[Rfam]
RNA sequence: UGGCGUCAGUGAUGCUGCACAAUUACCUACAUUGUUUGAGCCUUGUGAAAAGAAAACUGACUGAGACGCCU
Numbered sequence: 001u002g003g004c005g006u007c008a009g010u011g012a013u014g015c016u017g018c019a020c021a022a023u024u025a026c027c028u029a030c031a032u033u034g035u036u037u038g039a040g041c042c043u044u045g046u047g048a049a050a051a052g053a054a055a056a057c058u059g060a061c062u063g064a065g066a067c068g069c070c071u
Base pairs, nucleotide, nucleotide: 002070004068005067006066007065
Background
Small nucleolar RNA SNORD34: a 71-nucleotide sequence from Heterocephalus glaber. The family's consensus secondary structure was predicted with PFOLD. snoRNA U34 is found in intron 5 of the ribosomal protein L13a gene in humans. For this family Rfam cites "Purified box C/D snoRNPs are able to reproduce site-specific 2'-O-methylation of target RNA in vitro" (Galardi et al., Mol Cell Biol, 2002).